Shown here is an 86-nucleotide RNA from Dorcoceras hygrometricum, a member of the family "Small nucleolar RNA SNORD25". Rfam links the family to the GO terms RNA processing and nucleolus. A reference for the family is Qu et al. (2001), "Identification of 10 novel snoRNA gene clusters from Arabidopsis thaliana", Nucleic Acids Res.

[Rfam]
RNA sequence: GACAUCGAUGAUGAUCAACUCUACAGACCUGUGAUGAUUGUGGAUAUGAUCACAGCGUUUAUGAACAUCUAAGGGACUGAGAUGUU
Numbered sequence: 001g002a003c004a005u006c007g008a009u010g011a012u013g014a015u016c017a018a019c020u021c022u023a024c025a026g027a028c029c030u031g032u033g034a035u036g037a038u039u040g041u042g043g044a045u046a047u048g049a050u051c052a053c054a055g056c057g058u059u060u061a062u063g064a065a066c067a068u069c070u071a072a073g074g075g076a077c078u079g080a081g082a083u084g085u086u
Stems, first nucleotide, its partner, number of pairs: 002085005